[Rfam]
A member of the RNA family "mir-515 microRNA precursor family" from Saimiri boliviensis, 84 nucleotides long.

RNA sequence: UCUCAUACUGUGACCCUCCAAAGGGAAGUGCUUUCUGGUUAGAAAAGAAAGAACGCCUUCCCUUUAGAGUGUUACCGUUUGAGC
Numbered sequence: 001u002c003u004c005a006u007a008c009u010g011u012g013a014c015c016c017u018c019c020a021a022a023g024g025g026a027a028g029u030g031c032u033u034u035c036u037g038g039u040u041a042g043a044a045a046a047g048a049a050a051g052a053a054c055g056c057c058u059u060c061c062c063u064u065u066a067g068a069g070u071g072u073u074a075c076c077g078u079u080u081g082a083g084c
Base pairs, nucleotide, nucleotide: 002083003082004081005080007078008077010075011074012073013072014071016069017068018067020065021064022063023062024061025060026059027058028057030056031055033053034052035051

It scores 69 bits against the family's covariance model.